[Rfam]
RNA: Mason-Pfizer monkey virus packaging signal
RNA sequence: UGGCGCCCAACGUGGGGCCUGGAUACCGGGGGACAACGUGAGGGUCCGACGACAAAGAAAUAAGGGGUGCACCCGUUCAAAUAUUUCGGAGAUGUCAUGGUAGCCUGCUGUGACCGAGCCAACAGGUAAGUUGGUCAUUCAAUCAUGGGGCAAGAAUUAAGUCAGCAUCAAAAGUAUGUGAUACAAUUAAGAGAAGCUUUACAGGCAAGAGGAGUAAAGGUUACAACUGAGGAUUUAUUUCAUUUCUUUGAUUUUGUGAAAGACAUCUGCCCAU
Numbered sequence: 001u002g003g004c005g006c007c008c009a010a011c012g013u014g015g016g017g018c019c020u021g022g023a024u025a026c027c028g029g030g031g032g033a034c035a036a037c038g039u040g041a042g043g044g045u046c047c048g049a050c051g052a053c054a055a056a057g058a059a060a061u062a063a064g065g066g067g068u069g070c071a072c073c074c075g076u077u078c079a080a081a082u083a084u085u086u087c088g089g090a091g092a093u094g095u096c097a098u099g100g101u102a103g104c105c106u107g108c109u110g111u112g113a114c115c116g117a118g119c120c121a122a123c124a125g126g127u128a129a130g131u132u133g134g135u136c137a138u139u140c141a142a143u144c145a146u147g148g149g150g151c152a153a154g155a156a157u158u159a160a161g162u163c164a165g166c167a168u169c170a171a172a173a174g175u176a177u178g179u180g181a182u183a184c185a186a187u188u189a190a191g192a193g194a195a196g197c198u199u200u201a202c203a204g205g206c207a208a209g210a211g212g213a214g215u216a217a218a219g220g221u222u223a224c225a226a227c228u229g230a231g232g233a234u235u236u237a238u239u240u241c242a243u244u245u246c247u248u249u250g251a252u253u254u255u256g257u258g259a260a261a262g263a264c265a266u267c268u269g270c271c272c273a274u
Stems, first nucleotide, its partner, number of pairs: 006031003012026003037051003082128003086122001096112005134151001136150001138149004158201003161197002209249006218236005259274001262271001264269001